[Rfam]
RNA sequence: GUUUAUCUUCAAGGCAGGGUGCAAUUCCCGACCGGCGGUAAAAGCCCGCAACCCGAUGACGUCCUUCGUUAUCGGUGGAACCUGGCGCAAUUCCAGGUGCCGACAGUACAGUCUGGUAUAUAGAAGAUUUUC
Numbered sequence: 001g002u003u004u005a006u007c008u009u010c011a012a013g014g015c016a017g018g019g020u021g022c023a024a025u026u027c028c029c030g031a032c033c034g035g036c037g038g039u040a041a042a043a044g045c046c047c048g049c050a051a052c053c054c055g056a057u058g059a060c061g062u063c064c065u066u067c068g069u070u071a072u073c074g075g076u077g078g079a080a081c082c083u084g085g086c087g088c089a090a091u092u093c094c095a096g097g098u099g100c101c102g103a104c105a106g107u108a109c110a111g112u113c114u115g116g117u118a119u120a121u122a123g124a125a126g127a128u129u130u131u132c
Base pairs, nucleotide, nucleotide: 005128006127007126008125009124010123017029018028019027031112032111033102034101035049036048037047038046044100045099053075054074080098081097083095084094085093104115105114106113

Rfam assigns this 132-nucleotide RNA sequence from Limosilactobacillus mucosae to the family "FMN riboswitch aptamer (RFN element)". The match comes from Rfam's covariance-model search (90 bits). The family's consensus secondary structure is taken from published work. Lineage of the source: Bacteria > Bacillati > Bacillota > Bacilli > Limosilactobacillus mucosae.